[Rfam]
RNA sequence: GUGCAAUCCGCUAAACGGUCAGGCCGUGUCGCGGAAGGUUGAAUAACCCGCUAAUCUCGCGAAGCGCGAAGAAAGGUGAGCA
Numbered sequence: 001g002u003g004c005a006a007u008c009c010g011c012u013a014a015a016c017g018g019u020c021a022g023g024c025c026g027u028g029u030c031g032c033g034g035a036a037g038g039u040u041g042a043a044u045a046a047c048c049c050g051c052u053a054a055u056c057u058c059g060c061g062a063a064g065c066g067c068g069a070a071g072a073a074a075g076g077u078g079a080g081c082a
Stems, first nucleotide, its partner, number of pairs: 002082003007035005016026004037048004049078004056071002058068004
Annotation:
This 82-nucleotide RNA from Herminiimonas arsenicoxydans belongs to the Rfam family "SucA RNA motif". A reference for the family is Weinberg et al. (2007), "Identification of 22 candidate structured RNAs in bacteria using the CMfinder comparative genomics pipeline", Nucleic Acids Res.